[Rfam]
RNA: Streptomyces-metK RNA
RNA sequence: GCGAGACACCUGGUCCAUCCGGCGACCCGGCCCGAUAGACUGUCCGUGGAACGUCGCGGGGCGCAGCCCCCUGCCGGUCCGCGAAGAGAUAGCCAGCAGCCGCUGCAACCCCAGGGAG
Numbered sequence: 001g002c003g004a005g006a007c008a009c010c011u012g013g014u015c016c017a018u019c020c021g022g023c024g025a026c027c028c029g030g031c032c033c034g035a036u037a038g039a040c041u042g043u044c045c046g047u048g049g050a051a052c053g054u055c056g057c058g059g060g061g062c063g064c065a066g067c068c069c070c071c072u073g074c075c076g077g078u079c080c081g082c083g084a085a086g087a088g089a090u091a092g093c094c095a096g097c098a099g100c101c102g103c104u105g106c107a108a109c110c111c112c113a114g115g116g117a118g
Base pairs, nucleotide, nucleotide: 048080049079050078052076053075056074058072059071060070061069094105095104096103097102